[Rfam]
RNA sequence: UGCCGGGUGGACGAAUAGGCAAGUCGCAGUUCUCUGAAAUCUGAGAUACAGGUUCAAGCCCUGUCCCGGCAU
Numbered sequence: 001u002g003c004c005g006g007g008u009g010g011a012c013g014a015a016u017a018g019g020c021a022a023g024u025c026g027c028a029g030u031u032c033u034c035u036g037a038a039a040u041c042u043g044a045g046a047u048a049c050a051g052g053u054u055c056a057a058g059c060c061c062u063g064u065c066c067c068g069g070c071a072u
Base pairs, nucleotide, nucleotide: 001071002070003069004068005067006066007065010025011024012023027043028042029041031039048064049063050062051061052060

The family of this 72-nucleotide RNA sequence from Symplocastrum torsivum is "tRNA". The family's consensus secondary structure is taken from published work. By type it is a transfer RNA. The match comes from Rfam's covariance-model search (55 bits).